[Rfam]
RNA sequence: GAAUGAAGGAAGCAAAUGUAAUGAGCACAGAAUUUUUGUCGGGUCUCUAGGCCUGCCCUCUCUGAUGCCUUCCGGCUUUGAUUUUUGGGCAUGGCUCCAAGCAUAACAU
Numbered sequence: 001g002a003a004u005g006a007a008g009g010a011a012g013c014a015a016a017u018g019u020a021a022u023g024a025g026c027a028c029a030g031a032a033u034u035u036u037u038g039u040c041g042g043g044u045c046u047c048u049a050g051g052c053c054u055g056c057c058c059u060c061u062c063u064g065a066u067g068c069c070u071u072c073c074g075g076c077u078u079u080g081a082u083u084u085u086u087g088g089g090c091a092u093g094g095c096u097c098c099a100a101g102c103a104u105a106a107c108a109u
Base pairs, nucleotide, nucleotide: 012026013025041092043090044089045088051082053080055076056075057074
Small nucleolar RNA snoR100: a 109-nucleotide RNA sequence from Rhododendron williamsianum. Taxonomically the source falls in Rhododendron (Eukaryota, Spermatophyta, eudicotyledons, Gunneridae). It scores 60 bits against the family's covariance model.